This 162-nucleotide sequence from Ursus maritimus belongs to the Rfam family "Interferon gamma 5' UTR regulatory element". It scores 128 bits against the family's covariance model. Rfam 15.1 lists 135 matches to the family in 125 species. Pairs were carried over by alignment from the consensus structure, which is taken from published work. Rfam classes the family as a cis-regulatory element. For this family Rfam cites "Human interferon-gamma mRNA autoregulates its translation through a pseudoknot that activates the interferon-inducible protein kinase PKR" (Ben-Asouli et al., Cell, 2002).
[Rfam]
RNA sequence: CAUUUUUCUGAUUGUCUGUAGGUCGGCUAUUAGAAAAGAAAGAUCAGCUAAGUCCUUUGGACCUGAUCAGCGUAACCCGGGAGCUACUGAUUUCAACUACUUCGGCCGAACUACGACACGAUGAAUUAUACAAGCUAUAUCUUAGCUUUCCAGCUUUGUGUG
Number, nucleotide and partner (000 for none) at each position: 001c000002a000003u000004u000005u000006u000007u000008c070009u069010g068011a067012u066013u065014g064015u116016c115017u000018g114019u113020a000021g000022g112023u000024c000025g107026g106027c105028u104029a000030u000031u000032a101033g100034a000035a098036a000037a000038g000039a000040a000041a093042g092043a091044u090045c089046a088047g087048c000049u000050a000051a085052g084053u083054c000055c000056u081057u080058u079059g078060g000061a000062c000063c000064u014065g013066a012067u011068c010069a009070g008071c000072g000073u000074a000075a000076c000077c000078c059079g058080g057081g056082a000083g053084c052085u051086a000087c047088u046089g045090a044091u043092u042093u041094c000095a000096a000097c000098u035099a000100c033101u032102u000103c000104g028105g027106c026107c025108g000109a000110a000111c000112u022113a019114c018115g016116a015117c000118a000119c000120g000121a161122u160123g159124a000125a000126u000127u139128a138129u137130a136131c000132a000133a000134g000135c000136u130137a129138u128139a127140u000141c000142u000143u000144a155145g154146c153147u152148u000149u000150c000151c000152a147153g146154c145155u144156u000157u000158g000159u123160g122161u121162g000